[Rfam]
RNA sequence: CGCGCUGUCAUUGGGGAGUAGCCGCCUCCGUACAGGAGGAGCCGACGUCAACACACUUGGUCUACGGACCAUGGCGUCGGCAGCGCAAGCCAGGCGAGACCUUUGACUUCUUCGUUCACUGCCGGGGCCGGCGAUGGACGCUGAAGUCAUUGGUUCGUUCAUCGCCGGC
Numbered sequence: 001c002g003c004g005c006u007g008u009c010a011u012u013g014g015g016g017a018g019u020a021g022c023c024g025c026c027u028c029c030g031u032a033c034a035g036g037a038g039g040a041g042c043c044g045a046c047g048u049c050a051a052c053a054c055a056c057u058u059g060g061u062c063u064a065c066g067g068a069c070c071a072u073g074g075c076g077u078c079g080g081c082a083g084c085g086c087a088a089g090c091c092a093g094g095c096g097a098g099a100c101c102u103u104u105g106a107c108u109u110c111u112u113c114g115u116u117c118a119c120u121g122c123c124g125g126g127g128c129c130g131g132c133g134a135u136g137g138a139c140g141c142u143g144a145a146g147u148c149a150u151u152g153g154u155u156c157g158u159u160c161a162u163c164g165c166c167g168g169c
Stems, first nucleotide, its partner, number of pairs: 025039003041081010058071005